A member of the RNA family "Small nucleolar RNA SNORD113/SNORD114 family" from Loxodonta africana, 75 nucleotides long.
Pairs were carried over by alignment from the consensus structure, which is taken from published work.
The family's RNA type in Rfam is C/D-box small nucleolar RNA.
NCBI's taxonomy places the organism under Eukaryota, Metazoa, Euteleostomi, Tetrapoda, Loxodonta.
The imprinted human domain at 14q32 contains two clusters of tandemly repeated small nucleolar RNAs named 14q(I) and 14q(II) snoRNAs. These two clusters are named SNORD113 and SNORD114 respectively in the HGNC approved gene symbol nomenclature. The snoRNAs found in both clusters are clearly related and are represented here by a single family. These snoRNAs are intron encoded and are processed from the tissue-specific non-coding human MEG8 RNA, which lies downstream of the imprinted genes DLK1 and GTL2. snoRNAs 14q(I) and 14q(II) differ from previously identified C/D box snoRNAs in their expression profiles and lack of complementarity to rRNA and snRNA. Homologues of these snoRNAs are found in the imprinted non-coding mouse transcript Rian, and in the rat non-coding Bsr (brain-specific repetitive) RNA.
RNA sequence: UGGACCAAUGAUGACCACCGGUGGCUUCUGAGUCAUGGACGAUGAAUAAUAUGUGUCUGGAACUCUGAGGUCCAA
Numbered sequence: 001u002g003g004a005c006c007a008a009u010g011a012u013g014a015c016c017a018c019c020g021g022u023g024g025c026u027u028c029u030g031a032g033u034c035a036u037g038g039a040c041g042a043u044g045a046a047u048a049a050u051a052u053g054u055g056u057c058u059g060g061a062a063c064u065c066u067g068a069g070g071u072c073c074a075a
Stems, first nucleotide, its partner, number of pairs: 002073005